Shown here is a 112-nucleotide RNA sequence from Rhodoferax fermentans, a member of the family "TPP riboswitch aptamer (THI element)". Vitamin B(1) in its active form thiamin pyrophosphate (TPP) is an essential coenzyme that is synthesised by coupling of pyrimidine and thiazole moieties in bacteria. A search with the family's covariance model found it, with a score of 56 bits. The organism belongs to Rhodoferax, within Bacteria.
[Rfam]
RNA sequence: ACCCUUCACCGGGGGUGUCUGGCCUACCGCAGCAAUGCAGCAGGCCAGGCUGAGAAAAACCCCAUACCUGAUCUGGAUCAUGCCAGCGUAGGGAGCGUGAUGGGUUGUUGGC
Numbered sequence: 001a002c003c004c005u006u007c008a009c010c011g012g013g014g015g016u017g018u019c020u021g022g023c024c025u026a027c028c029g030c031a032g033c034a035a036u037g038c039a040g041c042a043g044g045c046c047a048g049g050c051u052g053a054g055a056a057a058a059a060c061c062c063c064a065u066a067c068c069u070g071a072u073c074u075g076g077a078u079c080a081u082g083c084c085a086g087c088g089u090a091g092g093g094a095g096c097g098u099g100a101u102g103g104g105u106u107g108u109u110g111g112c
Base pairs, nucleotide, nucleotide: 006100007099008098009097011063012062013061014060016057017050018049019048020047021046022045023044024043025042067092068091069090070089073086074085075084076083